[Rfam]
RNA sequence: UGGCCAGGGGACCGGGAUGCGCUGGGUGAGGUCGAUCCGGCGGGUGCCAGGGGUACAGGGAGUACCUCCUUCGGGGUCGGGCCAGGCGAAAA
Numbered sequence: 001u002g003g004c005c006a007g008g009g010g011a012c013c014g015g016g017a018u019g020c021g022c023u024g025g026g027u028g029a030g031g032u033c034g035a036u037c038c039g040g041c042g043g044g045u046g047c048c049a050g051g052g053g054u055a056c057a058g059g060g061a062g063u064a065c066c067u068c069c070u071u072c073g074g075g076g077u078c079g080g081g082c083c084a085g086g087c088g089a090a091a092a
Base pairs, nucleotide, nucleotide: 001084002083003082004081005080010078011077012076013075014048015047017045018044020042021041022040023039024038025037026036027035050068051067052066053065054064055063056062

A member of the RNA family "ivy-DE RNA" from Pseudomonas aeruginosa, 92 nucleotides long. Rfam's curators put it in the seed alignment.